The family of this 352-nucleotide sequence from Motiliproteus coralliicola is "Bacterial RNase P class A". The family's consensus secondary structure is taken from published work.
RNA sequence: UGAGAUCGCCAGACAGUCGCUGCCGUCUUCGGACGGGGGAGGAAAGUCCGGGCUCCAAAGGGCAGGGUGCCAGGUAACACCUGGGGGGCGUGAGCCUACGGCCAGUGCAGCAGAGAGUAGACCGCCUAAGCUAUCCUCGGAUAGCCGGUAAGGGUGAAAGGGUGCGGUAAGAGCGCACCGCGUGGGUGGCAACAUUCCACGGCAUGGUAAACCCCACCUGGAGCAAGACCAAAUAGGGAUCCAUUGGCGUGGCCCGCGCUGGAUCCGGGUAGGUUGCUUGAGGCCUGCGGCGACGCAGGUCCCAGAUGAAUGACUGUCCACGACAGAACCCGGCUUACGGCGAUCUCAACUU
Numbered sequence: 001u002g003a004g005a006u007c008g009c010c011a012g013a014c015a016g017u018c019g020c021u022g023c024c025g026u027c028u029u030c031g032g033a034c035g036g037g038g039g040a041g042g043a044a045a046g047u048c049c050g051g052g053c054u055c056c057a058a059a060g061g062g063c064a065g066g067g068u069g070c071c072a073g074g075u076a077a078c079a080c081c082u083g084g085g086g087g088g089c090g091u092g093a094g095c096c097u098a099c100g101g102c103c104a105g106u107g108c109a110g111c112a113g114a115g116a117g118u119a120g121a122c123c124g125c126c127u128a129a130g131c132u133a134u135c136c137u138c139g140g141a142u143a144g145c146c147g148g149u150a151a152g153g154g155u156g157a158a159a160g161g162g163u164g165c166g167g168u169a170a171g172a173g174c175g176c177a178c179c180g181c182g183u184g185g186g187u188g189g190c191a192a193c194a195u196u197c198c199a200c201g202g203c204a205u206g207g208u209a210a211a212c213c214c215c216a217c218c219u220g221g222a223g224c225a226a227g228a229c230c231a232a233a234u235a236g237g238g239a240u241c242c243a244u245u246g247g248c249g250u251g252g253c254c255c256g257c258g259c260u261g262g263a264u265c266c267g268g269g270u271a272g273g274u275u276g277c278u279u280g281a282g283g284c285c286u287g288c289g290g291c292g293a294c295g296c297a298g299g300u301c302c303c304a305g306a307u308g309a310a311u312g313a314c315u316g317u318c319c320a321c322g323a324c325a326g327a328a329c330c331c332g333g334c335u336u337a338c339g340g341c342g343a344u345c346u347c348a349a350c351u352u
Stems, first nucleotide, its partner, number of pairs: 001348010012318007020039002023036005044336003048333005053223004060255004065219005070084005085099001086097004100214002105212002107208002122153002124149003130145006161179006180203001181201005186195003227275004237266006246260005282301008

Taxonomically the source falls in Motiliproteus (Bacteria, Pseudomonadota, Gammaproteobacteria, Oceanospirillales).